[Rfam]
RNA sequence: AGAGACCGGGUCCUCUGAGUCCGCAGCACUUAGACUACGUGUUCCUCCGCAGCAGGGACAGGCCCAGCAGUCUUCU
Numbered sequence: 001a002g003a004g005a006c007c008g009g010g011u012c013c014u015c016u017g018a019g020u021c022c023g024c025a026g027c028a029c030u031u032a033g034a035c036u037a038c039g040u041g042u043u044c045c046u047c048c049g050c051a052g053c054a055g056g057g058a059c060a061g062g063c064c065c066a067g068c069a070g071u072c073u074u075c076u
Base pairs, nucleotide, nucleotide: 002074003073004072005071006070008065009064010063011062012061015033016032017031018030019029020028042058043057044056045055046054
The family of this 76-nucleotide RNA sequence from Ophiophagus hannah is "bZIP non canonical Hac1/Xbp1 intron". The literature on the family includes a 2011 paper in RNA Biol by Hooks and Griffiths-Jones, "Conserved RNA structures in the non-canonical Hac1/Xbp1 intron". NCBI's taxonomy places the organism under Eukaryota, Chordata, Dipnotetrapodomorpha, Squamata, Ophiophagus. Rfam 15.1 lists 1,325 matches to the family in 1,320 species. The family's consensus secondary structure was predicted with RNAfold. About the family: bZIP intron RNA is a non-canonical intron that was first reported in HAC1 gene in yeast and XBP1 gene in Metazoa. The family's RNA type in Rfam is small RNA.